[Rfam]
A member of the RNA family "Small nucleolar RNA SNORD72" from Oryctolagus cuniculus, 74 nucleotides long.
RNA sequence: CGCUUAUCGGUGAUGUCACAAAUGUCUGAACUUAUGAAUGGCAUACUGAUUUUGACGUUUAACUGAGAUAAGCU
Numbered sequence: 001c002g003c004u005u006a007u008c009g010g011u012g013a014u015g016u017c018a019c020a021a022a023u024g025u026c027u028g029a030a031c032u033u034a035u036g037a038a039u040g041g042c043a044u045a046c047u048g049a050u051u052u053u054g055a056c057g058u059u060u061a062a063c064u065g066a067g068a069u070a071a072g073c074u
Stems, first nucleotide, its partner, number of pairs: 002073007
About the family: snoRNA HBII-240 belongs to the CD family of snoRNAs. It is the human orthologue of the mouse MBII-240 and is predicted to guide 2'O-ribose methylation of the large 28S rRNA at residue U4590. Taxonomically the source falls in Oryctolagus (Eukaryota, Metazoa, Vertebrata, Euteleostomi). The match comes from Rfam's covariance-model search (73 bits). Rfam classes the family as a C/D-box small nucleolar RNA.